[Rfam]
Nucleotides: 145
Base pairs, nucleotide, nucleotide: 013132014131017128018127019126020125023122024121025120026119027118028117029116030115031114032113034111035110036109037108038107040105
Number, partner (000 for none) and nucleotide at each position: 001000g002000u003000u004000a005000c006000u007000g008000c009000u010000g011000u012000c013132u014131c015000u016000a017128a018127u019126u020125c021000g022000c023122u024121u025120g026119g027118u028117g029116c030115a031114g032113g033000u034111c035110g036109g037108g038107a039000a040105c041000g042000c043000u044000u045000c046000g047000c048000c049000u050000u051000u052000g053000u054000g055000a056000a057000c058000u059000c060000a061000c062000u063000g064000u065000a066000g067000u068000u069000u070000g071000u072000u073000c074000u075000g076000g077000u078000g079000g080000g081000u082000u083000u084000c085000u086000u087000u088000u089000g090000a091000u092000u093000a094000c095000g096000g097000g098000c099000g100000a101000a102000c103000c104000g105040g106000a107038u108037c109036c110035c111034g112000c113032c114031u115030u116029g117028c118027a119026u120025c121024a122023a123000c124000u125020g126019a127018a128017u129000c130000g131014g132013a133000g134000a135000c136000g137000u138000c139000g140000g141000u142000g143000a144000a145000a
This 145-nucleotide sequence from Protea cynaroides belongs to the Rfam family "MIR168 microRNA precursor family". Pairs were carried over by alignment from the consensus structure, which was predicted with WAR. NCBI's taxonomy places the organism under Eukaryota, Viridiplantae, Tracheophyta, Spermatophyta, Protea. On this family, see Reinhart et al., Genes Dev 2002: "MicroRNAs in plants".